[Rfam]
RNA: U12 minor spliceosomal RNA
Organism: Closterium sp. NIES-68
RNA sequence: UUGCCUUAAACUAAUGAGUAAGGAAAACUACGCGACGGGUUAAUCCCUGUCGCUGCGCUACUGCGCUCAGGAUUUUUGGAGGGUAAAAGGCCAGCCAGGAGUUGACGCUGCCUACUUAUCGCAGAACUCUCCUGUGCAGGCCUCCC
Numbered sequence: 001u002u003g004c005c006u007u008a009a010a011c012u013a014a015u016g017a018g019u020a021a022g023g024a025a026a027a028c029u030a031c032g033c034g035a036c037g038g039g040u041u042a043a044u045c046c047c048u049g050u051c052g053c054u055g056c057g058c059u060a061c062u063g064c065g066c067u068c069a070g071g072a073u074u075u076u077u078g079g080a081g082g083g084u085a086a087a088a089g090g091c092c093a094g095c096c097a098g099g100a101g102u103u104g105a106c107g108c109u110g111c112c113u114a115c116u117u118a119u120c121g122c123a124g125a126a127c128u129c130u131c132c133u134g135u136g137c138a139g140g141c142c143u144c145c146c
Stems, first nucleotide, its partner, number of pairs: 004023005032053008055066004083146001088143005094137001096134002099131003108124004